The family of this 103-nucleotide RNA sequence from Oceanobacillus bengalensis is "SAM riboswitch aptamer (S box leader)". The literature on the family includes a 1998 paper in Mol Microbiol by Grundy and Henkin, "The S box regulon: a new global transcription termination control system for methionine and cysteine biosynthesis genes in gram-positive bacteria". The match comes from Rfam's covariance-model search (74 bits).

[Rfam]
RNA sequence: AGGUUAUCAAGAGUGAACGAGAGUACUGGCUCAUUGACUUCACAGCAACCUGCCAUGUGGUAAGGUGCUACAACCAGCAAAGCAUUGCUUUGAAUGAUGACGA
Numbered sequence: 001a002g003g004u005u006a007u008c009a010a011g012a013g014u015g016a017a018c019g020a021g022a023g024u025a026c027u028g029g030c031u032c033a034u035u036g037a038c039u040u041c042a043c044a045g046c047a048a049c050c051u052g053c054c055a056u057g058u059g060g061u062a063a064g065g066u067g068c069u070a071c072a073a074c075c076a077g078c079a080a081a082g083c084a085u086u087g088c089u090u091u092g093a094a095u096g097a098u099g100a101c102g103a
Stems, first nucleotide, its partner, number of pairs: 003101006013043005021032003026077004044069004049065002051062004073095001078092006